Record summary:
Shown here is a 57-nucleotide sequence from Nocardioides panacis, a member of the family "msiK RNA". A search with the family's covariance model found it, with a score of 57 bits. Lineage of the source: Bacteria > Bacillati > Propionibacteriales > Nocardioidaceae > Nocardioides.
[Rfam]
RNA sequence: ACCACACACCUUUACGACGGAUCGUCCGGCACGUACCUGCCGGUGAAGGGAUGAACC
Numbered sequence: 001a002c003c004a005c006a007c008a009c010c011u012u013u014a015c016g017a018c019g020g021a022u023c024g025u026c027c028g029g030c031a032c033g034u035a036c037c038u039g040c041c042g043g044u045g046a047a048g049g050g051a052u053g054a055a056c057c
Stems, first nucleotide, its partner, number of pairs: 009049006026043006